[Rfam]
RNA sequence: CACUUGAGCCUUAGUAAAUAUCUACACUAGUAAGUUUUUUCUUCAUGUUAGAAAUACUUAGCAGUGUAGAUACUCCCUAAGGCUAGGUUG
Numbered sequence: 001c002a003c004u005u006g007a008g009c010c011u012u013a014g015u016a017a018a019u020a021u022c023u024a025c026a027c028u029a030g031u032a033a034g035u036u037u038u039u040u041c042u043u044c045a046u047g048u049u050a051g052a053a054a055u056a057c058u059u060a061g062c063a064g065u066g067u068a069g070a071u072a073c074u075c076c077c078u079a080a081g082g083c084u085a086g087g088u089u090g
Base pairs, nucleotide, nucleotide: 004087005086007084008083009082010081011080012079013078014077017074019072020071021070022069023068024067025066026065031060032059033058034057035056037054038053039052040051
Source information
A member of the RNA family "MIR5200 microRNA precursor family" from Triticum urartu, 90 nucleotides long. The source organism's lineage runs through Eukaryota, Streptophytina, Poaceae, Triticinae and Triticum. It scores 85 bits against the family's covariance model. Gene Ontology terms of the family: RISC complex and miRNA-mediated post-transcriptional gene silencing. Rfam 15.1 lists 52 matches to the family in 8 species.